[Rfam]
RNA sequence: CAGCUUCCCUGCCCUGCCUGUUUUCUCCUUUGUGAUUUUAUGAGAACAAAGGAGGAAAUAGGCAGGCCAGGGAAACGCUC
Numbered sequence: 001c002a003g004c005u006u007c008c009c010u011g012c013c014c015u016g017c018c019u020g021u022u023u024u025c026u027c028c029u030u031u032g033u034g035a036u037u038u039u040a041u042g043a044g045a046a047c048a049a050a051g052g053a054g055g056a057a058a059u060a061g062g063c064a065g066g067c068c069a070g071g072g073a074a075a076c077g078c079u080c
Base pairs, nucleotide, nucleotide: 002079003078004077005074006073007072008071009070010069011068013066014065015064016063017062018061019060020059021058022057023056024055025054026053027052028051029050030049031048032047033046036043037042

A member of the RNA family "mir-3173 microRNA precursor family" from Pan troglodytes, 80 nucleotides long. The sequence is in the family's curated seed alignment. The family's consensus secondary structure was predicted with RNAalifold. Its family is annotated with miRNA-mediated post-transcriptional gene silencing and RISC complex in the Gene Ontology.